[Rfam]
RNA sequence: CUUCAGGGAGCCGAGCCACAGCGGCCGGUCCUCCUCGCGGCCCUGGCCGUAGGUGGCGAGCAGGGCGUGCGCCUC
Numbered sequence: 001c002u003u004c005a006g007g008g009a010g011c012c013g014a015g016c017c018a019c020a021g022c023g024g025c026c027g028g029u030c031c032u033c034c035u036c037g038c039g040g041c042c043c044u045g046g047c048c049g050u051a052g053g054u055g056g057c058g059a060g061c062a063g064g065g066c067g068u069g070c071g072c073c074u075c
Base pairs, nucleotide, nucleotide: 015025016024017023031071033069038065043060044059047056048055049054

Record summary: The family of this 75-nucleotide RNA sequence from Streptomyces sp. W1SF4 is "ASpks TB sRNA". Rfam 15.1 lists 9,052 matches to the family in 683 species. The family's RNA type in Rfam is antisense RNA. For this family Rfam cites "Identification of small RNAs in Mycobacterium tuberculosis" (Arnvig and Young, Mol Microbiol, 2009).